[Rfam]
RNA sequence: UGAUAGCGAUGAUGUGUGAGGUUGCCUAGAUAAUGGGAAAUUCCACAGAGCGAAUGUCAAGUUCAAGAAACUGGCGACAA
Numbered sequence: 001u002g003a004u005a006g007c008g009a010u011g012a013u014g015u016g017u018g019a020g021g022u023u024g025c026c027u028a029g030a031u032a033a034u035g036g037g038a039a040a041u042u043c044c045a046c047a048g049a050g051c052g053a054a055u056g057u058c059a060a061g062u063u064c065a066a067g068a069a070a071c072u073g074g075c076g077a078c079a080a
Base pairs, nucleotide, nucleotide: 014046015045016044018043019042020041025037026036027035028034055079056078057077058076061075063074064073065072
Notes
The record is an 80-nucleotide RNA from Natranaerovirga hydrolytica, which matches "S10-Clostridia ribosomal protein leader" in Rfam. For this family Rfam cites "Discovery of 20 novel ribosomal leader candidates in bacteria and archaea" (Eckert and Weinberg, BMC Microbiol, 2020).